Rfam assigns this 76-nucleotide RNA from Leptotrombidium deliense to the family "mir-34 microRNA precursor family". The family's consensus secondary structure was predicted with RNAalifold. The match comes from Rfam's covariance-model search (54 bits). Rfam's curators write: Human mir-34a was discovered computationally and later experimentally verified. The family is grouped with related families in Rfam's "mir-34 clan". On this family, see Lim et al., Science 2003: "Vertebrate microRNA genes". Lineage of the source: Eukaryota > Metazoa > Chelicerata > Trombiculoidea > Leptotrombidium.
RNA sequence: GGUGAGUGGCAGUGUAGUUAGCUGGUUGUGGGUUAAUUGCAUCGACGACAACCACUAUCUGCACCGCCCACACAUC
Numbered sequence: 001g002g003u004g005a006g007u008g009g010c011a012g013u014g015u016a017g018u019u020a021g022c023u024g025g026u027u028g029u030g031g032g033u034u035a036a037u038u039g040c041a042u043c044g045a046c047g048a049c050a051a052c053c054a055c056u057a058u059c060u061g062c063a064c065c066g067c068c069c070a071c072a073c074a075u076c
Stems, first nucleotide, its partner, number of pairs: 002075003006071001008068002012064006019057003023054007